Y RNA: a 102-nucleotide sequence from Saimiri boliviensis. By type it is a non-coding RNA gene. The family has 104 seed sequences and 26,986 matches in Rfam 15.1. Lineage of the source: Eukaryota > Eumetazoa > Sarcopterygii > Platyrrhini > Saimiri boliviensis. Pairs were carried over by alignment from the consensus structure, which is taken from published work. The match comes from Rfam's covariance-model search (51 bits).
[Rfam]
RNA sequence: GGCUGGUGCAAGUACUGUGGCGUUUACAACUGACAGAUCGGAACCAGUUGCAGGUUUCCUUGUUUCUUCUCUACUCCCAUUGCUUCACUUGACUAGCCUUAA
Numbered sequence: 001g002g003c004u005g006g007u008g009c010a011a012g013u014a015c016u017g018u019g020g021c022g023u024u025u026a027c028a029a030c031u032g033a034c035a036g037a038u039c040g041g042a043a044c045c046a047g048u049u050g051c052a053g054g055u056u057u058c059c060u061u062g063u064u065u066c067u068u069c070u071c072u073a074c075u076c077c078c079a080u081u082g083c084u085u086c087a088c089u090u091g092a093c094u095a096g097c098c099u100u101a102a
Stems, first nucleotide, its partner, number of pairs: 001098007010090002017080004022076001028064003032060001